[Rfam]
RNA: Glycine riboswitch aptamer
Organism: Paenibacillus sp. 7541
Nucleotides: 107
Stems, first nucleotide, its partner, number of pairs: 001107005012029004031094003035089001038088003044081005
Number, partner (000 for none) and nucleotide at each position: 001107c002106u003105c004104u005103g006000g007000a008000g009000a010000g011000a012029a013028u014027c015026c016000u017000a018000a019000u020000u021000a022000a023000a024000a025000a026015g027014g028013a029012u030000c031094a032093c033092c034000c035089a036000a037000g038088g039087g040086g041000a042000a043000a044081c045080u046079c047078a048077c049000a050000c051000g052000a053000u054000c055000a056000u057000u058000a059000c060000a061000u062000g063000a064000u065000a066000u067000u068000g069000a070000c071000a072000u073000g074000g075000c076000g077048g078047u079046g080045g081044g082000g083000u084000a085000a086040c087039u088038c089035u090000c091000a092033g093032g094031u095000a096000c097000a098000a099000a100000g101000g102000a103005c104004a105003g106002a107001g